[Rfam]
RNA: F6 TB sRNA
RNA sequence: AGAGAAGCCCCAGGCUGGCAGGCUGACCCGCCGAGCUGCCUGCCAGCCUGGGGCUGCUCC
Numbered sequence: 001a002g003a004g005a006a007g008c009c010c011c012a013g014g015c016u017g018g019c020a021g022g023c024u025g026a027c028c029c030g031c032c033g034a035g036c037u038g039c040c041u042g043c044c045a046g047c048c049u050g051g052g053g054c055u056g057c058u059c060c
Stems, first nucleotide, its partner, number of pairs: 002059003007054010018043006